RNA sequence: CCCCUUUUCAUUUGGCGCGGCAUCCCUAUAUCGAUCCCUGCCGGUUUCGACCGGCUAUGGUGAUAAAUUGCGGCGUGCAAUAGAUAUAUCGGACCCGGGGGCGGUACCCGGCGGCUCCACCAUCACUACUGAUCGCUCGCGGUCAGGCCUUGUUGUCGCAAGGGUGUUGAUGGGGCCGAACUAGGAUCGACGUGUAUUGAAAAGCGCUGUUUUUGCCCAGGCUGAGUAACCUGUUAUAGGCUCACAACCCACAAGUGCCAACGACAACGAAGCACUUGCUCUCGCUGCAUAAUUCUAGGGGCUAACGCCCUGAAGUUAUAAGGUUAGAGCACGGUUCGGACCGAACCGGGUAACAGAAUCGGAAACC
Numbered sequence: 001c002c003c004c005u006u007u008u009c010a011u012u013u014g015g016c017g018c019g020g021c022a023u024c025c026c027u028a029u030a031u032c033g034a035u036c037c038c039u040g041c042c043g044g045u046u047u048c049g050a051c052c053g054g055c056u057a058u059g060g061u062g063a064u065a066a067a068u069u070g071c072g073g074c075g076u077g078c079a080a081u082a083g084a085u086a087u088a089u090c091g092g093a094c095c096c097g098g099g100g101g102c103g104g105u106a107c108c109c110g111g112c113g114g115c116u117c118c119a120c121c122a123u124c125a126c127u128a129c130u131g132a133u134c135g136c137u138c139g140c141g142g143u144c145a146g147g148c149c150u151u152g153u154u155g156u157c158g159c160a161a162g163g164g165u166g167u168u169g170a171u172g173g174g175g176c177c178g179a180a181c182u183a184g185g186a187u188c189g190a191c192g193u194g195u196a197u198u199g200a201a202a203a204g205c206g207c208u209g210u211u212u213u214u215g216c217c218c219a220g221g222c223u224g225a226g227u228a229a230c231c232u233g234u235u236a237u238a239g240g241c242u243c244a245c246a247a248c249c250c251a252c253a254a255g256u257g258c259c260a261a262c263g264a265c266a267a268c269g270a271a272g273c274a275c276u277u278g279c280u281c282u283c284g285c286u287g288c289a290u291a292a293u294u295c296u297a298g299g300g301g302c303u304a305a306c307g308c309c310c311u312g313a314a315g316u317u318a319u320a321a322g323g324u325u326a327g328a329g330c331a332c333g334g335u336u337c338g339g340a341c342c343g344a345a346c347c348g349g350g351u352a353a354c355a356g357a358a359u360c361g362g363a364a365a366c367c
Stems, first nucleotide, its partner, number of pairs: 040055005059217005070210007085196003090192002095111005112178007218233004223244003332348004341361001343359001

This 367-nucleotide RNA sequence from Novosphingobium hassiacum belongs to the Rfam family "Alphaproteobacteria transfer-messenger RNA". From the family's description: Bacterial tmRNA, also known as 10Sa RNA or SsrA, is named for its dual tRNA and mRNA-like properties. Its role is to liberate the mRNA from a stalled ribosome. To accomplish this part of the tmRNA is used as a reading frame that ends in a translation stop signal. The broken mRNA is replaced in the ribosome by the tmRNA and translation of the tmRNA leads to addition of a proteolysis tag to the incomplete protein enabling recognition by a protease. By type it is a non-coding RNA gene.